[Rfam]
RNA: c-di-GMP-I-GGC riboswitch aptamer
RNA sequence: UUUGAUAAAGCUAAAUUCGUCGCGAGGCGAAGACAGAAAGCCACGGAUCUCUCUGAGAUGGCCGGGUUACCUUUU
Numbered sequence: 001u002u003u004g005a006u007a008a009a010g011c012u013a014a015a016u017u018c019g020u021c022g023c024g025a026g027g028c029g030a031a032g033a034c035a036g037a038a039a040g041c042c043a044c045g046g047a048u049c050u051c052u053c054u055g056a057g058a059u060g061g062c063c064g065g066g067u068u069a070c071c072u073u074u075u
Stems, first nucleotide, its partner, number of pairs: 004071001011036002016031006034061001039068004044064003047059003